Rfam assigns this 136-nucleotide sequence from Muraenolepis orangiensis to the family "Small nucleolar RNA SNORA84".
The family's RNA type in Rfam is H/ACA-box small nucleolar RNA.
Pairs were carried over by alignment from the consensus structure, which was predicted with WAR.
The literature on the family includes a 2002 paper in Curr Biol by Marker et al., "Experimental RNomics: identification of 140 candidates for small non-messenger RNAs in the plant Arabidopsis thaliana".
Its family is annotated with nucleolus and RNA processing in the Gene Ontology.
[Rfam]
RNA sequence: GCCUUGUGGUUCCUAGAGAUGGCUGGACAGUGCCGAUCUGUAGGUGUUGAUUGACGGGCACAAAGUGAAUCUGUGAUGCAAUGCAUGGGAGCUGCCACUCCAAGCUGCCUUCCAUAGCCCGGUUGCAGAUACACCG
Dot-bracket structure: ((((..((.(.((((.(..((((........))))...).)))).).))......))))...........(.(((((.....((((((.((.((.(.......).)).)).)))).))...))))).)........